[Rfam]
RNA sequence: GGAGGGGCCUCUGGAGAAUCCCGUUCACGGGUGCCGAAGGGGCAAGGCGGCCGAAUGGCCCGCUGAAACUCUCAGGCAAAAGGACAGAGCAAAGCUG
Numbered sequence: 001g002g003a004g005g006g007g008c009c010u011c012u013g014g015a016g017a018a019u020c021c022c023g024u025u026c027a028c029g030g031g032u033g034c035c036g037a038a039g040g041g042g043c044a045a046g047g048c049g050g051c052c053g054a055a056u057g058g059c060c061c062g063c064u065g066a067a068a069c070u071c072u073c074a075g076g077c078a079a080a081a082g083g084a085c086a087g088a089g090c091a092a093a094g095c096u097g
Stems, first nucleotide, its partner, number of pairs: 009089005020031004033077003036073002040071003046064005
RNA: Glycine riboswitch aptamer